[Rfam]
RNA sequence: UGGUUCUUCCAAGCCUAACCUACGAGGGUACGUACAGAGUUUUCUUAACUCGCUAACCUUGUGGAAGGUCCCCGGAUCUGUGGUAGAAAGUACCGCUGAAUGGUUCAGUCAGACACACGUCACGCUGUUUCAGGAUAGGCUAUCCGUAAAACGGCAGGUGUGUGUUGUUGGUCAUAGCACAGGGAAUGUUAGGGUCAGUGUGACAACAAAACGGGGCCCAUUCUGGAAGAACU
Numbered sequence: 001u002g003g004u005u006c007u008u009c010c011a012a013g014c015c016u017a018a019c020c021u022a023c024g025a026g027g028g029u030a031c032g033u034a035c036a037g038a039g040u041u042u043u044c045u046u047a048a049c050u051c052g053c054u055a056a057c058c059u060u061g062u063g064g065a066a067g068g069u070c071c072c073c074g075g076a077u078c079u080g081u082g083g084u085a086g087a088a089a090g091u092a093c094c095g096c097u098g099a100a101u102g103g104u105u106c107a108g109u110c111a112g113a114c115a116c117a118c119g120u121c122a123c124g125c126u127g128u129u130u131c132a133g134g135a136u137a138g139g140c141u142a143u144c145c146g147u148a149a150a151a152c153g154g155c156a157g158g159u160g161u162g163u164g165u166u167g168u169u170g171g172u173c174a175u176a177g178c179a180c181a182g183g184g185a186a187u188g189u190u191a192g193g194g195u196c197a198g199u200g201u202g203a204c205a206a207c208a209a210a211a212c213g214g215g216g217c218c219c220a221u222u223c224u225g226g227a228a229g230a231a232c233u
Base pairs, nucleotide, nucleotide: 002233003232004231005230006229007228008227009226010225011224014193015192016191017190018189019188022062023061024060025059026058027057037051038050039049040048041047067218068217070216071215072214073213082094083093084092085091095109096108097107098106099105100104111165113163117161118160119159120158121157124155125154126153127152134144135143136142137141195203196202197201
RNA: RNase MRP